[Rfam]
RNA sequence: GCUGGCGGCAUGUCAAUCGGGCCUGAUGGCAUGGAGAAUGUGGCGGUUUUCCCGGUUUCACGCCGCAGCCAACGAAAUGGCAGUCGAGCUUCUAUCCCAUCUGCCGC
Numbered sequence: 001g002c003u004g005g006c007g008g009c010a011u012g013u014c015a016a017u018c019g020g021g022c023c024u025g026a027u028g029g030c031a032u033g034g035a036g037a038a039u040g041u042g043g044c045g046g047u048u049u050u051c052c053c054g055g056u057u058u059c060a061c062g063c064c065g066c067a068g069c070c071a072a073c074g075a076a077a078u079g080g081c082a083g084u085c086g087a088g089c090u091u092c093u094a095u096c097c098c099a100u101c102u103g104c105c106g107c
Stems, first nucleotide, its partner, number of pairs: 006106004012022003025101003028097002033092004039067007068081003
Shown here is a 107-nucleotide RNA sequence from Frigidibacter albus, a member of the family "Rhizobiales sRNA Atu_At1".
The family's consensus secondary structure was predicted with CMfinder.
The family's RNA type in Rfam is small RNA.